[Rfam]
RNA sequence: CUACGUAAAAGCUUUCGAUAGGGAAUUAUUCCUUAGGAAGGUCUGAGAGCCCAUACAUACCGAGAUGGUGGUUGAUUAGGUCAACGCAUAGUUUAACAGCAAUUUUGCCAUCUAAAUGACAGGAAUUGGAUGAUUUUAGAUGGUUUGGAAAUGGCUAUGCUUGGGUGUAAAAAUAGUCAAAUUCGAAAGACAGUAAUCGAUCCUACUGUAACAAAAUUCAGACUACUCUUUACGUGG
Number, nucleotide and partner (000 for none) at each position: 001c237002u236003a235004c234005g000006u000007a231008a230009a229010a000011g000012c189013u188014u187015u186016c185017g184018a183019u000020a034021g033022g032023g031024a030025a000026u000027u000028a000029u000030u024031c023032c022033u021034u020035a000036g000037g000038a000039a000040g000041g000042u000043c221044u220045g219046a218047g217048a000049g000050c165051c164052c163053a162054u000055a000056c000057a000058u070059a069060c068061c067062g000063a000064g000065a000066u000067g061068g060069u059070g058071g000072u084073u083074g082075a081076u080077u000078a000079g000080g076081u075082c074083a073084a072085c000086g000087c159088a158089u157090a156091g155092u154093u153094u000095a000096a000097c000098a000099g000100c000101a000102a000103u000104u000105u000106u000107g144108c143109c142110a000111u000112c000113u000114a000115a000116a000117u000118g000119a000120c000121a000122g000123g000124a000125a000126u000127u000128g000129g000130a000131u000132g000133a000134u000135u000136u000137u000138a000139g000140a000141u000142g109143g108144u107145u000146u000147g000148g000149a000150a000151a000152u000153g093154g092155c091156u090157a089158u088159g087160c000161u000162u053163g052164g051165g050166u000167g000168u000169a000170a000171a000172a000173a000174u000175a000176g000177u000178c000179a000180a000181a000182u000183u018184c017185g016186a015187a014188a013189g012190a209191c208192a207193g206194u205195a204196a000197u000198c000199g000200a000201u000202c000203c000204u195205a194206c193207u192208g191209u190210a000211a000212c000213a000214a000215a000216a000217u047218u046219c045220a044221g043222a000223c000224u000225a000226c000227u000228c000229u009230u008231u007232a000233c000234g004235u003236g002237g001
This 237-nucleotide RNA sequence from Hamiltosporidium magnivora belongs to the Rfam family "Nuclear RNase P". Taxonomically the source falls in Hamiltosporidium (Eukaryota, Fungi, Pansporoblastina, Dubosqiidae). The base pairs follow the family's consensus structure, which is taken from published work. It is annotated as a ribozyme. Rfam 15.1 lists 3,848 matches to the family in 1,862 species.